[Rfam]
RNA sequence: CUUCGAUUCAUUGGGGAGUAGCCGCCCUGUCGUGGACACUCGUGUUCGACAGGGGCGUACGUCAACAGACUUGGCCGGUUCCGGCUAUGGCGUGCGCAGCCCUCGGGCCUGGCGAGACCGAUGACGAUGCUUCCGCCAACCGGGCCGGGAUGCAUUGUCAUUGGCUCGCGUAUACACGGCCCGGC
Numbered sequence: 001c002u003u004c005g006a007u008u009c010a011u012u013g014g015g016g017a018g019u020a021g022c023c024g025c026c027c028u029g030u031c032g033u034g035g036a037c038a039c040u041c042g043u044g045u046u047c048g049a050c051a052g053g054g055g056c057g058u059a060c061g062u063c064a065a066c067a068g069a070c071u072u073g074g075c076c077g078g079u080u081c082c083g084g085c086u087a088u089g090g091c092g093u094g095c096g097c098a099g100c101c102c103u104c105g106g107g108c109c110u111g112g113c114g115a116g117a118c119c120g121a122u123g124a125c126g127a128u129g130c131u132u133c134c135g136c137c138a139a140c141c142g143g144g145c146c147g148g149g150a151u152g153c154a155u156u157g158u159c160a161u162u163g164g165c166u167c168g169c170g171u172a173u174a175c176a177c178g179g180c181c182c183g184g185c
Stems, first nucleotide, its partner, number of pairs: 026053007055097010072087005104184001
Shown here is a 185-nucleotide sequence from Pandoraea pnomenusa, a member of the family "Manganese Mn2+ riboswitch aptamer (yybP-ykoY)". The organism belongs to Pandoraea, within Bacteria. Rfam describes the family as follows. This RNA was originally discovered in E. coli during a large scale screen and was named SraF. The family was later found to exist upstream of related families of protein genes in many bacteria, including the the yybP and ykoK genes in B. subtilis. The specific functions of these proteins are unknown, but this structured RNA element may be involved in their genetic regulation as a riboswitch. Gene Ontology term of the family: manganese ion binding.